This 78-nucleotide RNA sequence from Terrihabitans soli belongs to the Rfam family "Makes More Granules Regulator RNA (mmgR)".
The literature on the family includes a 2014 paper in RNA Biol by Torres-Quesada et al., "Genome-wide profiling of Hfq-binding RNAs uncovers extensive post-transcriptional rewiring of major stress response and symbiotic regulons in Sinorhizobium meliloti".
Rfam's curators write: SuhB later renamed mmgR (makes more granules regulator) was a putative non-coding RNA found multiple times in the Agrobacterium tumefaciens genome and related alpha-proteobacteria.
[Rfam]
RNA sequence: UGCUGCUGCCCUCUUUGGGCGUUUCCUCCCUAGACUUGGGCCGUUCGCUUCCCGCGGACGGCCUCUUUCUUUUCCGGC
Numbered sequence: 001u002g003c004u005g006c007u008g009c010c011c012u013c014u015u016u017g018g019g020c021g022u023u024u025c026c027u028c029c030c031u032a033g034a035c036u037u038g039g040g041c042c043g044u045u046c047g048c049u050u051c052c053c054g055c056g057g058a059c060g061g062c063c064u065c066u067u068u069c070u071u072u073u074c075c076g077g078c
Base pairs, nucleotide, nucleotide: 008020009019010018011017039063040062041061042060043059044058045057046056047055